[Rfam]
RNA sequence: CUCUCCGAAACAUAUUUAGGUAUGGCCUCAGUGGAGAUUAUUGGAGGUAGAGCACUGAAUGGGCUAGGGGGCUUACACGCUUACUGAACCCAAUCAAACUCCGAAUGCCGAUAAUUGCUCACUGGGAGACAGGGCGCGGGCGAUAAGGUUCGCGUGCGAGAGGGGAACAACCCAGACUGUCAGCUAAGGCCCCGAAAUAGAUACUUAGUGCGUAAGGAUGUUCAAUUGCCCAGACAGCCAGGAUCUUGGCUUAGAAGCAGCCAUGAUUUAAAGAGUGCGUAACAGCUCACUGGUCGAGUGGUAGGGCACCGAAGAUAAUCGGGACUGAAGUAUCUUGCCGAAGCUGCGGACUUGCAUAUAUAUGUGAGUGGUAGGAGAGCAUUGUGUUUGCGCAGAAGGUGUAUUGUGAGAUAUGCUGGAGCGGGCACAAGAGACCAU
Number, nucleotide and partner (000 for none) at each position: 001c379002u378003c377004u376005c375006c374007g000008a000009a000010a000011c024012a023013u022014a021015u020016u000017u000018a000019g000020g015021u014022a013023u012024g011025g000026c128027c126028u125029c124030a123031g122032u121033g120034g000035a119036g116037a115038u114039u113040a112041u111042u110043g109044g108045a000046g000047g000048u000049a000050g102051a100052g099053c000054a000055c000056u096057g095058a094059a000060u092061g091062g090063g089064c000065u000066a000067g085068g084069g082070g081071g080072c079073u000074u000075a000076c000077a000078c000079g072080c071081u070082u069083a000084c068085u067086g000087a000088a000089c063090c062091c061092a060093a000094u058095c057096a056097a000098a000099c052100u051101c000102c050103g000104a000105a000106u000107g000108c044109c043110g042111a041112u040113a039114a038115u037116u036117g000118c000119u035120c033121a032122c031123u030124g029125g028126g027127a000128g026129a000130c000131a000132g157133g000134g155135c154136g153137c152138g151139g150140g149141c148142g000143a000144u000145a000146a000147g000148g141149u140150u139151c138152g137153c136154g135155u134156g000157c132158g000159a000160g000161a000162g173163g172164g171165g000166a000167a000168c000169a000170a000171c164172c163173c162174a000175g000176a000177c349178u348179g347180u346181c000182a345183g344184c343185u000186a000187a000188g339189g338190c337191c000192c000193c000194g000195a000196a000197a336198u000199a335200g334201a333202u332203a331204c330205u000206u000207a000208g000209u000210g000211c000212g000213u000214a000215a000216g310217g309218a000219u000220g307221u306222u305223c304224a000225a302226u301227u300228g299229c298230c000231c000232a000233g000234a000235c000236a000237g294238c293239c292240a291241g290242g000243a267244u266245c265246u000247u000248g262249g261250c260251u000252u000253a000254g000255a000256a000257g000258c000259a000260g250261c249262c248263a000264u000265g245266a244267u243268u272269u000270a000271a000272a268273g288274a000275g000276u000277g286278c285279g000280u000281a000282a000283c000284a000285g278286c277287u000288c273289a000290c241291u240292g239293g238294u237295c000296g000297a000298g229299u228300g227301g226302u225303a000304g223305g222306g221307c220308a000309c217310c216311g000312a000313a000314g000315a000316u000317a000318a000319u000320c000321g000322g000323g000324a000325c000326u000327g000328a000329a000330g204331u203332a202333u201334c200335u199336u197337g190338c189339c188340g000341a000342a000343g184344c183345u182346g180347c179348g178349g177350a369351c368352u367353u366354g365355c364356a363357u362358a000359u000360a000361u000362a357363u356364g355365u354366g353367a352368g351369u350370g000371g000372u000373a000374g006375g005376a004377g003378a002379g001380c433381a000382u430383u429384g428385u427386g426387u425388u424389u423390g422391c421392g000393c000394a000395g000396a000397a000398g417399g416400u415401g414402u413403a412404u411405u410406g000407u000408g000409a000410g405411a404412u403413a402414u401415g400416c399417u398418g000419g000420a000421g391422c390423g389424g388425g387426c386427a385428c384429a383430a382431g000432a000433g380434a000435c000436c000437a000438u000

Shown here is a 438-nucleotide part of an RNA from Cloacimonas acidaminivorans, a member of the family "Bacterial large subunit ribosomal RNA". The source organism's lineage runs through Bacteria, Cloacimonadia (SeqCode), Cloacimonadales (SeqCode), Cloacimonas (SeqCode) and Cloacimonas acidaminivorans (SeqCode). Pairs were carried over by alignment from the consensus structure, which is taken from published work.